[Rfam]
RNA sequence: UUACCGGGAUGAUAUAAAAGCUGAACUCUCUCUUUCUGAUUCUGCAGUGGAGAAAAAAGAAAAAUCUCUGAGUAGC
Dot-bracket structure: ((((...................................................................)))).
Small nucleolar RNA SNORD26: a 76-nucleotide RNA from Microtus ochrogaster. Its Rfam clan is "SNORD26 clan". A search with the family's covariance model found it, with a score of 77 bits.